The record is a 75-nucleotide sequence from Haemonchus placei, which matches "mir-5928 microRNA precursor family" in Rfam. It scores 60 bits against the family's covariance model. Lineage of the source: Eukaryota > Ecdysozoa > Chromadorea > Trichostrongylidae > Haemonchus.
RNA sequence: GGCCCAAAUGUAAAGUAAAGAAGAUUAGAAAGAUCAUCUGGCCCUACUAAACUAGUCUACUUCAAAUUUGGGCCC
Numbered sequence: 001g002g003c004c005c006a007a008a009u010g011u012a013a014a015g016u017a018a019a020g021a022a023g024a025u026u027a028g029a030a031a032g033a034u035c036a037u038c039u040g041g042c043c044c045u046a047c048u049a050a051a052c053u054a055g056u057c058u059a060c061u062u063c064a065a066a067u068u069u070g071g072g073c074c075c
Stems, first nucleotide, its partner, number of pairs: 001074009011064001013062005019056001022053002025050004030045001032043001034041002